[Rfam]
RNA sequence: GGUACCUGUACAAGAUGCGGAGCAUCUAUGGUAAAAGA
Numbered sequence: 001g002g003u004a005c006c007u008g009u010a011c012a013a014g015a016u017g018c019g020g021a022g023c024a025u026c027u028a029u030g031g032u033a034a035a036a037g038a
Base pairs, nucleotide, nucleotide: 005031006030013027014026015025016024017023018022